[Rfam]
RNA: MIR390 microRNA precursor family
Organism: Capsicum baccatum
RNA sequence: UUAGAUAAUCUGUAAAGCUCAGGAGGGAUAGCGCCAUGGAUGAAUAAGUUUAGUUACACUAUUGUUUUAGGCUGUCUUUGAUCUCUUUGCACAUCUCUAGCGCUAUCCAUCUUGAGUUUUACAGCUUUUUCAU
Number, nucleotide and partner (000 for none) at each position: 001u000002u000003a000004g000005a000006u000007a000008a000009u000010c124011u000012g000013u000014a000015a000016a118017g117018c116019u115020c114021a113022g112023g111024a110025g000026g108027g107028a106029u105030a104031g103032c102033g101034c100035c000036a000037u000038g000039g000040a000041u000042g000043a000044a000045u000046a000047a000048g000049u000050u000051u000052a000053g000054u000055u000056a000057c000058a000059c000060u000061a000062u000063u000064g000065u000066u000067u000068u000069a000070g000071g000072c000073u000074g000075u000076c000077u000078u000079u000080g000081a000082u000083c000084u000085c000086u000087u000088u000089g000090c000091a000092c000093a000094u000095c000096u000097c000098u000099a000100g034101c033102g032103c031104u030105a029106u028107c027108c026109a000110u024111c023112u022113u021114g020115a019116g018117u017118u016119u000120u000121a000122c000123a000124g010125c000126u000127u000128u000129u000130u000131c000132a000133u000